[Rfam]
RNA sequence: ACUUAUUCUCAGGGCGGGGUGCGAGUCCCCACCGGCGGUAUCCCAGGAAUACUGGGGAGCCCGCGAGCGCUCCUAAUAUAGGAGGUCAGCAGAUCUGGUGAGAGGCCAGAGCCGACGGUAAUAGUCCGGAUGAAAGAGGAUAGGA
Numbered sequence: 001a002c003u004u005a006u007u008c009u010c011a012g013g014g015c016g017g018g019g020u021g022c023g024a025g026u027c028c029c030c031a032c033c034g035g036c037g038g039u040a041u042c043c044c045a046g047g048a049a050u051a052c053u054g055g056g057g058a059g060c061c062c063g064c065g066a067g068c069g070c071u072c073c074u075a076a077u078a079u080a081g082g083a084g085g086u087c088a089g090c091a092g093a094u095c096u097g098g099u100g101a102g103a104g105g106c107c108a109g110a111g112c113c114g115a116c117g118g119u120a121a122u123a124g125u126c127c128g129g130a131u132g133a134a135a136g137a138g139g140a141u142a143g144g145a
Base pairs, nucleotide, nucleotide: 003143004142005141006140007139008138009137010136017029018028019027031125032124033114034113035064036063037062038061059112060111067090068089094110095109096108097107098106116128117127118126
The family of this 145-nucleotide sequence from Sporomusa malonica is "FMN riboswitch aptamer (RFN element)". Rfam 15.1 lists 6,230 matches to the family in 5,120 species. From the family's description: The RFN element is a highly conserved domain that is found frequently in the 5'-untranslated regions of prokaryotic mRNAs that encode for flavin mononucleotide (FMN) biosynthesis and transport proteins. The match comes from Rfam's covariance-model search (113 bits).